[Rfam]
RNA sequence: UUCCGCAGGAUUAAUCUCAUUCGCAUCAAUCUUUCGCCUUUUACUAAAGAUUGCCGUGGGAUUGAUUCAAAGAAUGCGGCUUCAACCAAAUUUCUGUGCCCCUCCUUGUGAGGGGA
Numbered sequence: 001u002u003c004c005g006c007a008g009g010a011u012u013a014a015u016c017u018c019a020u021u022c023g024c025a026u027c028a029a030u031c032u033u034u035c036g037c038c039u040u041u042u043a044c045u046a047a048a049g050a051u052u053g054c055c056g057u058g059g060g061a062u063u064g065a066u067u068c069a070a071a072g073a074a075u076g077c078g079g080c081u082u083c084a085a086c087c088a089a090a091u092u093u094c095u096g097u098g099c100c101c102c103u104c105c106u107u108g109u110g111a112g113g114g115g116a
Stems, first nucleotide, its partner, number of pairs: 003079004009067011027053008097116001099115006
U5 spliceosomal RNA: a 116-nucleotide RNA sequence from Phytophthora fragariaefolia. A search with the family's covariance model found it, with a score of 90 bits. By type it is a spliceosomal small nuclear RNA. Lineage of the source: Eukaryota > Stramenopiles > Oomycota > Peronosporaceae > Phytophthora.